[Rfam]
RNA sequence: UUUGAUGAGAGUUUGAUUCUGGCUCAGGAUUAAUGCUGGUGGUAUGCAUAACACAUGCAAGUCGAACGAAAAAGGCCCUCGGGUCUUUUUAGUGGCAAACGGGCGAGUAACGCAUACUUAACUUACUUAUCUGAGGAAAAUAGCAGCUCGAAAGAGCUAUUAAUAAUCCAUAGGUUUAGGCUAGAGGAACUAGCUUAAAUUAAAGGAGGCUGCCGCAAGGUGGCCUUGCGGGUAAAUAGGAGUAUGUCCUAUUAGAUAGUUGGAGAGGUAAAGGCUCACCAAGUCGAUGAUGGGUAGCUGGACUGAGAGGUUGAACAGCCGCAAUGGGAUUGAGAUAUGGCCCAUAUUCCUACGGGAAGCAGCAGUGAGGAAUUUUUCACAAUGGACGAAAGUCUGAUGGAGCAAUACCACGUGAACGAUGAAGGUCUUCUGAUUGUAAAGUUCUUUUAUUUAGGAAAAAAAGCGCGACAGGAAAUGGUCGCGCCCUGAUUGUACUAAUUGAAUAAGUGACAGCUAACUAUGUGCCAGCAGCUGCGGUAAAACAUAGGUCACGAGCAUUAUCCGGAUUUAUUG
Numbered sequence: 001u002u003u004g005a006u007g008a009g010a011g012u013u014u015g016a017u018u019c020u021g022g023c024u025c026a027g028g029a030u031u032a033a034u035g036c037u038g039g040u041g042g043u044a045u046g047c048a049u050a051a052c053a054c055a056u057g058c059a060a061g062u063c064g065a066a067c068g069a070a071a072a073a074g075g076c077c078c079u080c081g082g083g084u085c086u087u088u089u090u091a092g093u094g095g096c097a098a099a100c101g102g103g104c105g106a107g108u109a110a111c112g113c114a115u116a117c118u119u120a121a122c123u124u125a126c127u128u129a130u131c132u133g134a135g136g137a138a139a140a141u142a143g144c145a146g147c148u149c150g151a152a153a154g155a156g157c158u159a160u161u162a163a164u165a166a167u168c169c170a171u172a173g174g175u176u177u178a179g180g181c182u183a184g185a186g187g188a189a190c191u192a193g194c195u196u197a198a199a200u201u202a203a204a205g206g207a208g209g210c211u212g213c214c215g216c217a218a219g220g221u222g223g224c225c226u227u228g229c230g231g232g233u234a235a236a237u238a239g240g241a242g243u244a245u246g247u248c249c250u251a252u253u254a255g256a257u258a259g260u261u262g263g264a265g266a267g268g269u270a271a272a273g274g275c276u277c278a279c280c281a282a283g284u285c286g287a288u289g290a291u292g293g294g295u296a297g298c299u300g301g302a303c304u305g306a307g308a309g310g311u312u313g314a315a316c317a318g319c320c321g322c323a324a325u326g327g328g329a330u331u332g333a334g335a336u337a338u339g340g341c342c343c344a345u346a347u348u349c350c351u352a353c354g355g356g357a358a359g360c361a362g363c364a365g366u367g368a369g370g371a372a373u374u375u376u377u378c379a380c381a382a383u384g385g386a387c388g389a390a391a392g393u394c395u396g397a398u399g400g401a402g403c404a405a406u407a408c409c410a411c412g413u414g415a416a417c418g419a420u421g422a423a424g425g426u427c428u429u430c431u432g433a434u435u436g437u438a439a440a441g442u443u444c445u446u447u448u449a450u451u452u453a454g455g456a457a458a459a460a461a462a463g464c465g466c467g468a469c470a471g472g473a474a475a476u477g478g479u480c481g482c483g484c485c486c487u488g489a490u491u492g493u494a495c496u497a498a499u500u501g502a503a504u505a506a507g508u509g510a511c512a513g514c515u516a517a518c519u520a521u522g523u524g525c526c527a528g529c530a531g532c533u534g535c536g537g538u539a540a541a542a543c544a545u546a547g548g549u550c551a552c553g554a555g556c557a558u559u560a561u562c563c564g565g566a567u568u569u570a571u572u573g
Base pairs, nucleotide, nucleotide: 009025010024011023012022013021027563028562029561030560032559033558034557035556036555037554039411040410041409042408043407044406045404046403047369052367053366054365056364057363058362061096062095063094066093067092069090070089071088072087073086074085075084076083077082103322104321105320112247113246114245115244116243117242118241119240122239123238127235128234129233130232131231132230133229135169136168137167143160145158146157147156148155149154175199176198177197178196179195180194181193182192183191184190204227205226206225248294249293250292255285256284257283260282261281262280263279265277266276267275297319298318299317300316301312302311303310304309324345325344326343327342328341347358348357349356350355375401377400378399379398383396384395385394386393387392414444415443416442417441424435425434426433427432449500451498452497453496454495458490463484464483465482466481467480468479507552508551509550510549511548518547519546520545521544522543528535529534
RNA: Bacterial small subunit ribosomal RNA, nucleotides 1 to 573